[Rfam]
RNA sequence: UCAGGCCUGUAGUGUUUGUAAGCUUUUUAAUUAUGUCUAACCUUACUCUUUCCCAAAAAGGAACCUGAUUUUGACUUAUAGCUGCUGGAUCACCUUGUAGUGAAUAGCAAAAGUAUUGUCUUAAGGUACCGCCCUGCAUAUAUGCAGGUCUAGGCAUGUAGAAAGUUACGGCAUUUUGGGCCUAUA
Numbered sequence: 001u002c003a004g005g006c007c008u009g010u011a012g013u014g015u016u017u018g019u020a021a022g023c024u025u026u027u028u029a030a031u032u033a034u035g036u037c038u039a040a041c042c043u044u045a046c047u048c049u050u051u052c053c054c055a056a057a058a059a060g061g062a063a064c065c066u067g068a069u070u071u072u073g074a075c076u077u078a079u080a081g082c083u084g085c086u087g088g089a090u091c092a093c094c095u096u097g098u099a100g101u102g103a104a105u106a107g108c109a110a111a112a113g114u115a116u117u118g119u120c121u122u123a124a125g126g127u128a129c130c131g132c133c134c135u136g137c138a139u140a141u142a143u144g145c146a147g148g149u150c151u152a153g154g155c156a157u158g159u160a161g162a163a164a165g166u167u168a169c170g171g172c173a174u175u176u177u178g179g180g181c182c183u184a185u186a
Stems, first nucleotide, its partner, number of pairs: 003183007011175005017170003035155004040149004060130002063127004068122001073120003077115003084108002090103004
Shown here is a 186-nucleotide RNA sequence from Pectinatus brassicae, a member of the family "6S / SsrS RNA". The organism belongs to Pectinatus, within Bacteria. By type it is a non-coding RNA gene. From the family's description: E. coli 6S RNA was the first non coding RNA to be sequenced, but its function was unknown until recently.